Shown here is a 205-nucleotide sequence from Hemibagrus wyckioides, a member of the family "U2 spliceosomal RNA". A search with the family's covariance model found it, with a score of 111 bits. U2 is a small nuclear RNA (snRNA) component of the spliceosome (involved in pre-mRNA splicing). The family's RNA type in Rfam is spliceosomal small nuclear RNA. NCBI's taxonomy places the organism under Eukaryota, Actinopteri, Neopterygii, Siluriformes, Hemibagrus.

RNA sequence: AUCGUUUAUUGUUGUGUUGAACUGGUUCUAAUAAAAAAAAAAAAAAAAAAAAUCUGUUCUCAUCAGUUUAAUAUCUGAUACGCCCUCUAUAUGAGGGCUCUAUAUUAAACGGAUUUUUAGAGCUGGGAGCUGGAAAAGGGGCUUGCUCCGUCCGAUCCACGCAUCGGCCUGGUAUUGCAGUACUUCCAGGCUUGGUGCACCAUUU
Numbered sequence: 001a002u003c004g005u006u007u008a009u010u011g012u013u014g015u016g017u018u019g020a021a022c023u024g025g026u027u028c029u030a031a032u033a034a035a036a037a038a039a040a041a042a043a044a045a046a047a048a049a050a051a052a053u054c055u056g057u058u059c060u061c062a063u064c065a066g067u068u069u070a071a072u073a074u075c076u077g078a079u080a081c082g083c084c085c086u087c088u089a090u091a092u093g094a095g096g097g098c099u100c101u102a103u104a105u106u107a108a109a110c111g112g113a114u115u116u117u118u119a120g121a122g123c124u125g126g127g128a129g130c131u132g133g134a135a136a137a138g139g140g141g142c143u144u145g146c147u148c149c150g151u152c153c154g155a156u157c158c159a160c161g162c163a164u165c166g167g168c169c170u171g172g173u174a175u176u177g178c179a180g181u182a183c184u185u186c187c188a189g190g191c192u193u194g195g196u197g198c199a200c201c202a203u204u205u
Stems, first nucleotide, its partner, number of pairs: 062079005082098006126158003130154001132152002138149004161198006168190005
Dot-bracket structure: .............................................................(((((........)))))..((((((.....))))))...........................(((.(.((....((((....)))).)).).)))..((((((.(((((.............)))))..)))))).......
For this family Rfam cites "The spliceosomal snRNAs of Caenorhabditis elegans" (Thomas et al., Nucleic Acids Res, 1990).
Rfam 15.1 lists 71,512 matches to the family in 2,642 species.
Its family is annotated with mRNA branch site recognition, U2 snRNP and pre-mRNA branch point binding in the Gene Ontology.